[Rfam]
RNA sequence: CUGGUGGAGGUGAUGACGUUUUUUUCCCCGUCAGAGCGACAGUGUUGAUUUCUCACUGUUUAAGCCAGAUUGUGUCUGAUUCACCAGC
Numbered sequence: 001c002u003g004g005u006g007g008a009g010g011u012g013a014u015g016a017c018g019u020u021u022u023u024u025u026c027c028c029c030g031u032c033a034g035a036g037c038g039a040c041a042g043u044g045u046u047g048a049u050u051u052c053u054c055a056c057u058g059u060u061u062a063a064g065c066c067a068g069a070u071u072g073u074g075u076c077u078g079a080u081u082c083a084c085c086a087g088c
Stems, first nucleotide, its partner, number of pairs: 001087008
The family of this 88-nucleotide RNA from Mesitornis unicolor is "Small nucleolar SNORD12/SNORD106". Its Rfam clan is "SNORD12 clan". Rfam classes the family as a C/D-box small nucleolar RNA.